[Rfam]
RNA sequence: CCCCCGCUGGCACCGUCAGCAUGGGCAACCAGACGCUGAUCAGUCGGCCAGUGCCGCGCGUUCACAAAACCCCGACAGCC
Numbered sequence: 001c002c003c004c005c006g007c008u009g010g011c012a013c014c015g016u017c018a019g020c021a022u023g024g025g026c027a028a029c030c031a032g033a034c035g036c037u038g039a040u041c042a043g044u045c046g047g048c049c050a051g052u053g054c055c056g057c058g059c060g061u062u063c064a065c066a067a068a069a070c071c072c073c074g075a076c077a078g079c080c
Stems, first nucleotide, its partner, number of pairs: 001015001007032004016024003034058003038054001043076005
Shown here is an 80-nucleotide RNA sequence from Oryzisolibacter propanilivorax, a member of the family "Proteo-phage-1 RNA". Pairs were carried over by alignment from the consensus structure, which is taken from published work. It is annotated as a small RNA. The match comes from Rfam's covariance-model search (49 bits).